[Rfam]
RNA sequence: CAAUCGAGUGGCAUCCAGCCUCAGAAAACUUGGGGCGCCACCGUUGA
Numbered sequence: 001c002a003a004u005c006g007a008g009u010g011g012c013a014u015c016c017a018g019c020c021u022c023a024g025a026a027a028a029c030u031u032g033g034g035g036c037g038c039c040a041c042c043g044u045u046g047a
Stems, first nucleotide, its partner, number of pairs: 006042001010039002018036007
RNA: Hepatitis C virus stem-loop I
Organism: Orthohepacivirus hominis